[Rfam]
RNA sequence: UCCAUUAUAUAUAUAAGUUUAGGGUCUUUAUAAGACCCCUAAAACAAUUUUUGUACGCCGCCUUAAUUCUUUUUAUGGCGGUG
Numbered sequence: 001u002c003c004a005u006u007a008u009a010u011a012u013a014u015a016a017g018u019u020u021a022g023g024g025u026c027u028u029u030a031u032a033a034g035a036c037c038c039c040u041a042a043a044a045c046a047a048u049u050u051u052u053g054u055a056c057g058c059c060g061c062c063u064u065a066a067u068u069c070u071u072u073u074u075a076u077g078g079c080g081g082u083g
Stems, first nucleotide, its partner, number of pairs: 022038003026034003057082006064075002
SmY spliceosomal RNA: an 83-nucleotide RNA from Auanema sp. JU1783.
It is annotated as a spliceosomal small nuclear RNA.
For this family Rfam cites "A survey of nematode SmY RNAs" (Jones et al., RNA Biol, 2009).
The source organism's lineage runs through Eukaryota, Opisthokonta, Metazoa, Rhabditida and Auanema.
Pairs were carried over by alignment from the consensus structure, which is taken from published work.